[Rfam]
Rfam assigns this 86-nucleotide RNA from Equus caballus to the family "mir-684 microRNA precursor family". The family's consensus secondary structure was predicted with RNAalifold. Its family is annotated with RISC complex and miRNA-mediated post-transcriptional gene silencing in the Gene Ontology. The organism belongs to Equus, within Eukaryota. The sequence is in the family's curated seed alignment. On this family, see Mineno et al., Nucleic Acids Res 2006: "The expression profile of microRNAs in mouse embryos". The family has 3 seed sequences and 57 matches in Rfam 15.1.

RNA sequence: GUAGGGCAAUCUGUCUUUAGGAAGGGAUAGAUUACUCUAAAAGAAAUGAAUCCGAGAUAGUUUUCCCUUCAAUUCAGGCAUGUUGU
Numbered sequence: 001g002u003a004g005g006g007c008a009a010u011c012u013g014u015c016u017u018u019a020g021g022a023a024g025g026g027a028u029a030g031a032u033u034a035c036u037c038u039a040a041a042a043g044a045a046a047u048g049a050a051u052c053c054g055a056g057a058u059a060g061u062u063u064u065c066c067c068u069u070c071a072a073u074u075c076a077g078g079c080a081u082g083u084u085g086u
Base pairs, nucleotide, nucleotide: 001086002085003084004083006081012076013075016072017071023068024067025066026065027064029063030062031061032060033059034058036057037056038055041051